[Rfam]
RNA sequence: AUCCCGGUGCAGGGGUUUUACGUGUAUCAGUGAGGAUUCGUCCGAGAUCACGUUUUUGCUAGUUGAAAACUACAACCUGACCGCUCCUGUUGGGUCUCGACCUGGCAGGGAAUUUUUGGAACUCUCCUCUCGGC
Numbered sequence: 001a002u003c004c005c006g007g008u009g010c011a012g013g014g015g016u017u018u019u020a021c022g023u024g025u026a027u028c029a030g031u032g033a034g035g036a037u038u039c040g041u042c043c044g045a046g047a048u049c050a051c052g053u054u055u056u057u058g059c060u061a062g063u064u065g066a067a068a069a070c071u072a073c074a075a076c077c078u079g080a081c082c083g084c085u086c087c088u089g090u091u092g093g094g095u096c097u098c099g100a101c102c103u104g105g106c107a108g109g110g111a112a113u114u115u116u117u118g119g120a121a122c123u124c125u126c127c128u129c130u131c132g133g134c
Base pairs, nucleotide, nucleotide: 020053021052022051023050024049026048027047028046034043035042036041085110086109087108088107089106090105091104092103093102094101095100